A member of the RNA family "Betaproteobacteria transfer-messenger RNA" from Samunavirus SM1, 392 nucleotides long. By type it is a non-coding RNA gene. The family's consensus secondary structure is taken from published work. On this family, see Williams, Nucleic Acids Res 2002: "The tmRNA Website: invasion by an intron". About the family: Bacterial tmRNA, also known as 10Sa RNA or SsrA, is named for its dual tRNA and mRNA-like properties. Its role is to liberate the mRNA from a stalled ribosome.
RNA sequence: CCACUCACUCCAUCUAGAAGUUUAGAUGCCACGGAAGGCGUCUACCUAGAAUUGCUGUAAUCCCUUCAAAGGGGAAACGUGGCGGACGGGGGUUCGAUUCCCCCCAGCUCCACCAAAGACAUUCUCGGCCAGCACGUUCGUUCCUAGGUGUGAGAAGGUGGCUGCGAUACUGCCGGGUGGUUGCUAGGAACAUCAUUCGGAAAGUCCAGCUAGAGAGUGUCUCUGAUGGGGCUGUUCAGGAUUCGACGCCGCGCGUACUUAGCGAAGGCAGCAAGGAAAGGCGACGCACCUUGACGCGCGCAAAUCGAUAAACGCCAACGAUACUUCGUUCGACGUUCGCCUCGCAGCCUAAACCCCUGCGGAGUGACGGGUAGCCUCCGGGCUUCCUCCCC
Numbered sequence: 001c002c003a004c005u006c007a008c009u010c011c012a013u014c015u016a017g018a019a020g021u022u023u024a025g026a027u028g029c030c031a032c033g034g035a036a037g038g039c040g041u042c043u044a045c046c047u048a049g050a051a052u053u054g055c056u057g058u059a060a061u062c063c064c065u066u067c068a069a070a071g072g073g074g075a076a077a078c079g080u081g082g083c084g085g086a087c088g089g090g091g092g093u094u095c096g097a098u099u100c101c102c103c104c105c106a107g108c109u110c111c112a113c114c115a116a117a118g119a120c121a122u123u124c125u126c127g128g129c130c131a132g133c134a135c136g137u138u139c140g141u142u143c144c145u146a147g148g149u150g151u152g153a154g155a156a157g158g159u160g161g162c163u164g165c166g167a168u169a170c171u172g173c174c175g176g177g178u179g180g181u182u183g184c185u186a187g188g189a190a191c192a193u194c195a196u197u198c199g200g201a202a203a204g205u206c207c208a209g210c211u212a213g214a215g216a217g218u219g220u221c222u223c224u225g226a227u228g229g230g231g232c233u234g235u236u237c238a239g240g241a242u243u244c245g246a247c248g249c250c251g252c253g254c255g256u257a258c259u260u261a262g263c264g265a266a267g268g269c270a271g272c273a274a275g276g277a278a279a280g281g282c283g284a285c286g287c288a289c290c291u292u293g294a295c296g297c298g299c300g301c302a303a304a305u306c307g308a309u310a311a312a313c314g315c316c317a318a319c320g321a322u323a324c325u326u327c328g329u330u331c332g333a334c335g336u337u338c339g340c341c342u343c344g345c346a347g348c349c350u351a352a353a354c355c356c357c358u359g360c361g362g363a364g365u366g367a368c369g370g371g372u373a374g375c376c377u378c379c380g381g382g383c384u385u386c387c388u389c390c391c392c
Stems, first nucleotide, its partner, number of pairs: 053273005063268002066265002070260003078253007088104005105234007274291003369388003373384004